RNA sequence: CCUCUUGCCUCGUGCCUUGUGUGCGAAGCAGUUUCCCUUCAGCCAGUACCUCCCAGUAAUGGCGGUACCUGAAGACGAUAGCACGAUUUUUGCGGAUAUUUUUGUUCGUGCGAUUUCUCCCUCCUUGGCCGUCACACCUGUGGCUCGAUGGAGCGGACACAAAAAUCAGUCCAAGUU
Numbered sequence: 001c002c003u004c005u006u007g008c009c010u011c012g013u014g015c016c017u018u019g020u021g022u023g024c025g026a027a028g029c030a031g032u033u034u035c036c037c038u039u040c041a042g043c044c045a046g047u048a049c050c051u052c053c054c055a056g057u058a059a060u061g062g063c064g065g066u067a068c069c070u071g072a073a074g075a076c077g078a079u080a081g082c083a084c085g086a087u088u089u090u091u092g093c094g095g096a097u098a099u100u101u102u103u104g105u106u107c108g109u110g111c112g113a114u115u116u117c118u119c120c121c122u123c124c125u126u127g128g129c130c131g132u133c134a135c136a137c138c139u140g141u142g143g144c145u146c147g148a149u150g151g152a153g154c155g156g157a158c159a160c161a162a163a164a165a166u167c168a169g170u171c172c173a174a175g176u177u
Base pairs, nucleotide, nucleotide: 005031006030007029008028010026011025014022016021036077037074038073039072040071041070046069047067048066049065050064055060095171096170097169098166099165100164101163102162103161104160105159119156120155121153122152123151124150132147140144
A member of the RNA family "Ascomycota telomerase RNA" from Coniochaeta pulveracea, 177 nucleotides of a longer RNA. The match comes from Rfam's covariance-model search (519 bits). On this family, see Qi et al., Nucleic Acids Res 2013: "The common ancestral core of vertebrate and fungal telomerase RNAs".